[Rfam]
RNA sequence: UCCAACGUUACAACGGAGGAUGGGAAUGAUGGAACCAUUUUUCCUGAAACCAUCCCGUCAACAAAUCCUGCAUGCGUCAAGGCUGACAGGCUUUGGGGUAUGAAGCACAGGUGAUUCGGCUGAACGAAGGCUGCAGCCACUCUUUUUUAAAGAAGGUAUGCCAACGGAUAGGCCGCACGGCUGAAAA
Dot-bracket structure: .................((((((.......((.(.......).))....))))))(((........(((((((((.((((((((....)))))))).))))).....)))).....(((((...((..((((..................))........))..))....))))).)))........
This 187-nucleotide sequence from Lentibacillus kapialis belongs to the Rfam family "Group II catalytic intron D1-D4-5".
The literature on the family includes a 2003 paper in Crit Rev Biochem Mol Biol by Lehmann and Schmidt, "Group II introns: structure and catalytic versatility of large natural ribozymes".
Lineage of the source: Bacteria > Bacillota > Bacilli > Caryophanales > Lentibacillus.
Its family is annotated with Group II intron splicing in the Gene Ontology.
Rfam's curators write: Group II introns are found in rRNA, tRNA and mRNA of organelles in fungi, plants and protists, and also in mRNA in bacteria.